[Rfam]
RNA sequence: CUCUUAUCAAGAGUCGGUGGAGGGAAUACCCCCUGUGAAGCCCAGCAACCCCUUCUAACGUAGAAGAAUGGUGCUAAAGGUUGCAGAAAUAAUGAUUUCUGAACGAUAAGAG
Dot-bracket structure: ((((((((....(..(((...(((..[[.[)))......))))((((.((.(((.........)))...))))))...(].]]((((((......))))))..)))))))))
Numbered sequence: 001c002u003c004u005u006a007u008c009a010a011g012a013g014u015c016g017g018u019g020g021a022g023g024g025a026a027u028a029c030c031c032c033c034u035g036u037g038a039a040g041c042c043c044a045g046c047a048a049c050c051c052c053u054u055c056u057a058a059c060g061u062a063g064a065a066g067a068a069u070g071g072u073g074c075u076a077a078a079g080g081u082u083g084c085a086g087a088a089a090u091a092a093u094g095a096u097u098u099c100u101g102a103a104c105g106a107u108a109a110g111a112g
Stems, first nucleotide, its partner, number of pairs: 001112008013043001016042003022033003027083002030080001044075004049071002052066003079104001084101006